Shown here is a 72-nucleotide sequence from Lottia gigantea, a member of the family "mir-252 microRNA precursor family". Rfam links the family to the GO terms miRNA-mediated post-transcriptional gene silencing and RISC complex. For this family Rfam cites "Large-scale sequencing reveals 21U-RNAs and additional microRNAs and endogenous siRNAs in C. elegans" (Ruby et al., Cell, 2006). The organism belongs to Lottia, within Eukaryota. Its Rfam clan is "mir-252 microRNA precursor family".
[Rfam]
Nucleotides: 072
Base pairs, nucleotide, nucleotide: 003070005068006067007066009064010063011062012061013060014059015058017056018055023050024049025048026047027046028045029044
Number, partner (000 for none) and nucleotide at each position: 001000g002000u003070a004000a005068a006067u007066a008000c009064u010063a011062a012061g013060u014059a015058c016000u017056g018055g019000u020000g021000c022000c023050g024049c025048g026047g027046g028045a029044g030000g031000u032000u033000a034000u035000a036000a037000u038000u039000g040000a041000u042000u043000a044029c045028u046027c047026c048025u049024g050023c051000g052000a053000c054000u055018c056017u057000u058015g059014u060013g061012c062011u063010u064009a065000c066007u067006a068005u069000g070003u071000c072000a